[Rfam]
This 200-nucleotide sequence from Miscanthus lutarioriparius belongs to the Rfam family "MIR1435 microRNA precursor family". The family's consensus secondary structure was predicted with RNAalifold. Rfam links the family to the GO terms miRNA-mediated post-transcriptional gene silencing and RISC complex. Rfam 15.1 lists 1,765 matches to the family in 31 species.

RNA sequence: UGGCUUUCUCCUAAGUGAAACUUGUCUAACUUUAACCAAAUUUUUAGAAAAAUAUAUUAAUAUCUACAAGUUCAAAUAAAUGCACCAUCAAACAUAUUUCAUAGAAAGUUUAAUUAAACAAAAUUUGAUGUUAUAAAUGUUGAUGCAUUUUCCUAUAAACUUGGUUGGAGUUAGAGAAGUUUGAAUUAGGACAAGCCAAA
Numbered sequence: 001u002g003g004c005u006u007u008c009u010c011c012u013a014a015g016u017g018a019a020a021c022u023u024g025u026c027u028a029a030c031u032u033u034a035a036c037c038a039a040a041u042u043u044u045u046a047g048a049a050a051a052a053u054a055u056a057u058u059a060a061u062a063u064c065u066a067c068a069a070g071u072u073c074a075a076a077u078a079a080a081u082g083c084a085c086c087a088u089c090a091a092a093c094a095u096a097u098u099u100c101a102u103a104g105a106a107a108g109u110u111u112a113a114u115u116a117a118a119c120a121a122a123a124u125u126u127g128a129u130g131u132u133a134u135a136a137a138u139g140u141u142g143a144u145g146c147a148u149u150u151u152c153c154u155a156u157a158a159a160c161u162u163g164g165u166u167g168g169a170g171u172u173a174g175a176g177a178a179g180u181u182u183g184a185a186u187u188a189g190g191a192c193a194a195g196c197c198a199a200a
Stems, first nucleotide, its partner, number of pairs: 005195003009191001011189004016184001018182006025175002031169005045155003049151004055145003059141005065135002068132001072128006